Shown here is a 133-nucleotide sequence from Lactuca sativa, a member of the family "Small nucleolar RNA snoR104". The literature on the family includes a 2002 paper in Curr Biol by Marker et al., "Experimental RNomics: identification of 140 candidates for small non-messenger RNAs in the plant Arabidopsis thaliana". The family has 8 seed sequences and 612 matches in Rfam 15.1. Gene Ontology terms of the family: RNA processing and nucleolus.
RNA sequence: GGGGAGCAUUUAAAGUUUAAAUGUUGCCUAAUAUACCCUUCCUAGAACAAAAAAUAAAAAAGAAAAAUAUCUGCUUUUCCUACUUGUUGUACGUGAGACACGUCUACAAGCCUCUUGACUAUGAGAUACAUAU
Numbered sequence: 001g002g003g004g005a006g007c008a009u010u011u012a013a014a015g016u017u018u019a020a021a022u023g024u025u026g027c028c029u030a031a032u033a034u035a036c037c038c039u040u041c042c043u044a045g046a047a048c049a050a051a052a053a054a055u056a057a058a059a060a061a062g063a064a065a066a067a068u069a070u071c072u073g074c075u076u077u078u079c080c081u082a083c084u085u086g087u088u089g090u091a092c093g094u095g096a097g098a099c100a101c102g103u104c105u106a107c108a109a110g111c112c113u114c115u116u117g118a119c120u121a122u123g124a125g126a127u128a129c130a131u132a133u
Base pairs, nucleotide, nucleotide: 001029002028003027005025006024007023008022009021010020011019068126070124083110084109085108086107087106089104091103092102093101